[Rfam]
RNA sequence: AGCUUAUCGAUGAUGUACUCGAAAAAAAAUGUCUGAACAUAUGAGUCCGCUAGUGAUUUCAACGCGCACUGAGAUAAGCG
Numbered sequence: 001a002g003c004u005u006a007u008c009g010a011u012g013a014u015g016u017a018c019u020c021g022a023a024a025a026a027a028a029a030u031g032u033c034u035g036a037a038c039a040u041a042u043g044a045g046u047c048c049g050c051u052a053g054u055g056a057u058u059u060c061a062a063c064g065c066g067c068a069c070u071g072a073g074a075u076a077a078g079c080g
Stems, first nucleotide, its partner, number of pairs: 002079007
RNA: Small nucleolar RNA SNORD72